[Rfam]
RNA sequence: GGAUGUUCUGAAGACCUGCUCUCUAGGCCACGCACGGAGGACGCGGUUCCUCACGGGCCCCGCGCCCGCCUAGGGGAAAGUCCCCGGACCGCCGGCAGAGAGUGCCGGGCGCUGCCGCGCCCCGCCCGCCCCGCCGCACCACCCCCGCCGAGACGCCCGCGGGCCGAGCGGCCGAGCGCGGGGCGGGCUCUCGUCACGGCCACAGACACGCAGGUAGCGCGGCGGCGCGCCAACACAACGGGGCUCACUCUCAGGUCAUC
Numbered sequence: 001g002g003a004u005g006u007u008c009u010g011a012a013g014a015c016c017u018g019c020u021c022u023c024u025a026g027g028c029c030a031c032g033c034a035c036g037g038a039g040g041a042c043g044c045g046g047u048u049c050c051u052c053a054c055g056g057g058c059c060c061c062g063c064g065c066c067c068g069c070c071u072a073g074g075g076g077a078a079a080g081u082c083c084c085c086g087g088a089c090c091g092c093c094g095g096c097a098g099a100g101a102g103u104g105c106c107g108g109g110c111g112c113u114g115c116c117g118c119g120c121c122c123c124g125c126c127c128g129c130c131c132c133g134c135c136g137c138a139c140c141a142c143c144c145c146c147g148c149c150g151a152g153a154c155g156c157c158c159g160c161g162g163g164c165c166g167a168g169c170g171g172c173c174g175a176g177c178g179c180g181g182g183g184c185g186g187g188c189u190c191u192c193g194u195c196a197c198g199g200c201c202a203c204a205g206a207c208a209c210g211c212a213g214g215u216a217g218c219g220c221g222g223c224g225g226c227g228c229g230c231c232a233a234c235a236c237a238a239c240g241g242g243g244c245u246c247a248c249u250c251u252c253a254g255g256u257c258a259u260c
Base pairs, nucleotide, nucleotide: 002260003259004258005257007255008254009253010252011251014215015214016213017212018211019210022074023073024072025071026070027069028068037052038051039050040049041048079245080244082243083242084241085240094106095105096104097103107122108121109120110119111118112117124188125187126186128184129183130182131181132180133179135176137174145171146170147169148168155164156163157162217230218229219228220227221226
Rfam assigns this 260-nucleotide sequence from Serilophus lunatus to the family "RNase MRP". By type it is a ribozyme.